[Rfam]
RNA sequence: GGGUAACUCCUACUGUACCUUUAUCACUUGUAGGACUCGGUCACGCUGUGGGUACGAUAUUUGUACCUUAGACGCCAGUCGUCAGGGGUGUGAUGUGAGGCGGGGUUAGAUGCCCU
Numbered sequence: 001g002g003g004u005a006a007c008u009c010c011u012a013c014u015g016u017a018c019c020u021u022u023a024u025c026a027c028u029u030g031u032a033g034g035a036c037u038c039g040g041u042c043a044c045g046c047u048g049u050g051g052g053u054a055c056g057a058u059a060u061u062u063g064u065a066c067c068u069u070a071g072a073c074g075c076c077a078g079u080c081g082u083c084a085g086g087g088g089u090g091u092g093a094u095g096u097g098a099g100g101c102g103g104g105g106u107u108a109g110a111u112g113c114c115c116u
Stems, first nucleotide, its partner, number of pairs: 001020004008035006036099004040094008050068008071083004102116005
RNA: epsC RNA
Organism: Paenibacillus selenitireducens